L31-Firmicutes ribosomal protein leader: a 35-nucleotide RNA. On this family, see Eckert and Weinberg, BMC Microbiol 2020: "Discovery of 20 novel ribosomal leader candidates in bacteria and archaea".

RNA sequence: CUCUGGGCUCGCAACGUAGCCCAGGGCGGAAAGAG
Numbered sequence: 001c002u003c004u005g006g007g008c009u010c011g012c013a014a015c016g017u018a019g020c021c022c023a024g025g026g027c028g029g030a031a032a033g034a035g
Stems, first nucleotide, its partner, number of pairs: 001026008